[Rfam]
RNA: Bacterial RNase P class A
Organism: Aquimarina sp. TRL1
RNA sequence: CAUGCAGAUCACCUUAUCGCUGUUCUGAUGCUUCAGAAGAGAGGAAAGUCCGGACACCAUAGCGCAGUAUAGCGGGUAACGCCCGUCCGUCGAAAGACGAGGACAAGUGCAACAGAAAGAAUGUACAGGUAAUGCUGUAGUGAAAUCAGGUAAACUCUAUAUGGUGCAACGUCAUGUAUACCGACUUUUAAGGGUUGCGCGCCCGAUGUCGGAGGGUAGGCGGUUGGAGUUAACAAGUAAUUGUUAAUCUAGAUAAAUGAUAAGGAGCUUUAUUAAUAAAGUUACAGAAUCCGGCUUAUGAUCUGCUUUUAUU
Numbered sequence: 001c002a003u004g005c006a007g008a009u010c011a012c013c014u015u016a017u018c019g020c021u022g023u024u025c026u027g028a029u030g031c032u033u034c035a036g037a038a039g040a041g042a043g044g045a046a047a048g049u050c051c052g053g054a055c056a057c058c059a060u061a062g063c064g065c066a067g068u069a070u071a072g073c074g075g076g077u078a079a080c081g082c083c084c085g086u087c088c089g090u091c092g093a094a095a096g097a098c099g100a101g102g103a104c105a106a107g108u109g110c111a112a113c114a115g116a117a118a119g120a121a122u123g124u125a126c127a128g129g130u131a132a133u134g135c136u137g138u139a140g141u142g143a144a145a146u147c148a149g150g151u152a153a154a155c156u157c158u159a160u161a162u163g164g165u166g167c168a169a170c171g172u173c174a175u176g177u178a179u180a181c182c183g184a185c186u187u188u189u190a191a192g193g194g195u196u197g198c199g200c201g202c203c204c205g206a207u208g209u210c211g212g213a214g215g216g217u218a219g220g221c222g223g224u225u226g227g228a229g230u231u232a233a234c235a236a237g238u239a240a241u242u243g244u245u246a247a248u249c250u251a252g253a254u255a256a257a258u259g260a261u262a263a264g265g266a267g268c269u270u271u272a273u274u275a276a277u278a279a280a281g282u283u284a285c286a287g288a289a290u291c292c293g294g295c296u297u298a299u300g301a302u303c304u305g306c307u308u309u310u311a312u313u
Stems, first nucleotide, its partner, number of pairs: 002308001004306008012265007020041002023038006046297003050294005055166004062200004067162005072086005087101001088099004102157002107155002109151002124139005170222004181212005192204004229248008